[Rfam]
RNA sequence: CUCUUAUCGAGAGAAGGGGAGGGACCGGCCCAAUGAACCUUCGGCAACCUUGUGCGCGAGCAGGGUGCCAAUUCCGGCAGGGUAACCUGGCAGAUGAGAG
Dot-bracket structure: ((((((((....(((((...(((.[[[[)))......)))))((((.((((((......))))))))))...(]]]]((((....))))..)))))))))
Numbered sequence: 001c002u003c004u005u006a007u008c009g010a011g012a013g014a015a016g017g018g019g020a021g022g023g024a025c026c027g028g029c030c031c032a033a034u035g036a037a038c039c040u041u042c043g044g045c046a047a048c049c050u051u052g053u054g055c056g057c058g059a060g061c062a063g064g065g066u067g068c069c070a071a072u073u074c075c076g077g078c079a080g081g082g083u084a085a086c087c088u089g090g091c092a093g094a095u096g097a098g099a100g
Stems, first nucleotide, its partner, number of pairs: 001100008013042005021031003025077004043069004048065006073092001078089004
Record summary
This 100-nucleotide sequence from Hydrogenispora ethanolica belongs to the Rfam family "SAM riboswitch aptamer (S box leader)". Taxonomically the source falls in Hydrogenispora (Bacteria, Bacillati, Bacillota).